[Rfam]
RNA sequence: AGAACCGGAGGACGGAACAGGCAGCCGUCACCCUUUGUUUGGAGAUGCGGGAAGCGUCCCCCCGCCCGGUUUC
Numbered sequence: 001a002g003a004a005c006c007g008g009a010g011g012a013c014g015g016a017a018c019a020g021g022c023a024g025c026c027g028u029c030a031c032c033c034u035u036u037g038u039u040u041g042g043a044g045a046u047g048c049g050g051g052a053a054g055c056g057u058c059c060c061c062c063c064g065c066c067c068g069g070u071u072u073c
Stems, first nucleotide, its partner, number of pairs: 002072007011029005020058003031042001047065005

A member of the RNA family "skipping-rope RNA", 73 nucleotides long.
Rfam's curators put it in the seed alignment.
Rfam classes the family as a small RNA.